[Rfam]
RNA sequence: GGGUCAGCCGUAGCUCAGCGGUUCCUUCACUACUUUCUUAAGCAAGAUAUAGUCUCUUCGGAGGUUCAAGACCCGCGGGCGCUUUCUGACCUUUUU
Numbered sequence: 001g002g003g004u005c006a007g008c009c010g011u012a013g014c015u016c017a018g019c020g021g022u023u024c025c026u027u028c029a030c031u032a033c034u035u036u037c038u039u040a041a042g043c044a045a046g047a048u049a050u051a052g053u054c055u056c057u058u059c060g061g062a063g064g065u066u067c068a069a070g071a072c073c074c075g076c077g078g079g080c081g082c083u084u085u086c087u088g089a090c091c092u093u094u095u096u
Stems, first nucleotide, its partner, number of pairs: 002091006013080004018076004026070002

The family of this 96-nucleotide sequence from Xenopus laevis is "Vault RNA". Lineage of the source: Eukaryota > Craniata > Pipidae > Xenopus > Xenopus. Rfam 15.1 lists 2,873 matches to the family in 431 species. A search with the family's covariance model found it, with a score of 72 bits.